The record is a 95-nucleotide RNA sequence from Desulfobacter latus, which matches "Group II catalytic intron D1-D4-1" in Rfam. Rfam links the family to the GO term Group II intron splicing. Rfam 15.1 lists 2,508 matches to the family in 1,144 species.
[Rfam]
RNA sequence: UGAGGAUCGGGUAACCGGUCCUGACCGCAUGGGAGAAGUCAGCAGAAGGCAUAGUAGCCAGUGGAAACGAGCCCCGCAAAGCGGGAGCGAGGGCA
Numbered sequence: 001u002g003a004g005g006a007u008c009g010g011g012u013a014a015c016c017g018g019u020c021c022u023g024a025c026c027g028c029a030u031g032g033g034a035g036a037a038g039u040c041a042g043c044a045g046a047a048g049g050c051a052u053a054g055u056a057g058c059c060a061g062u063g064g065a066a067a068c069g070a071g072c073c074c075c076g077c078a079a080a081g082c083g084g085g086a087g088c089g090a091g092g093g094c095a
Stems, first nucleotide, its partner, number of pairs: 001024001003022008039046002057094003075089003